[Rfam]
Nucleotides: 148
Base pairs, nucleotide, nucleotide: 012132013131014130018047019046020045021044022043023042024041025040026039048128049127050126051125052124053123058066067113068112069111075089076088077087078086092107093106094105095104
Number, partner (000 for none) and nucleotide at each position: 001000u002000g003000a004000g005000u006000a007000u008000a009000u010000u011000a012132g013131c014130c015000a016000a017000a018047u019046c020045u021044a022043u023042c024041u025040u026039u027000u028000c029000a030000a031000g032000c033000a034000a035000u036000g037000a038000u039026g040025a041024a042023g043022a044021u045020a046019g047018a048128a049127c050126g051125g052124a053123g054000g055000a056000a057000c058066c059000a060000c061000a062000g063000u064000u065000c066058g067113g068112g069111g070000c071000g072000u073000a074000u075089c076088u077087g078086c079000a080000u081000u082000u083000u084000u085000a086078g087077c088076a089075g090000a091000g092107g093106g094105a095104c096000a097000u098000c099000u100000c101000u102000c103000a104095g105094u106093c107092c108000u109000a110000g111069c112068c113067c114000g115000u116000c117000a118000g119000c120000u121000a122000a123053c124052u125051u126050c127049g128048u129000c130014g131013g132012c133000a134000u135000u136000g137000g138000g139000g140000g141000a142000a143000a144000a145000u146000u147000g148000g